[Rfam]
RNA sequence: GAAAAUUUGCUCUUAGUAUUUCUCUAGUAGGUUUCUUCAAGGAGAAUGCCCCC
Numbered sequence: 001g002a003a004a005a006u007u008u009g010c011u012c013u014u015a016g017u018a019u020u021u022c023u024c025u026a027g028u029a030g031g032u033u034u035c036u037u038c039a040a041g042g043a044g045a046a047u048g049c050c051c052c053c
Stems, first nucleotide, its partner, number of pairs: 030050003033046005
RNA: U7 small nuclear RNA
Organism: Salvelinus namaycush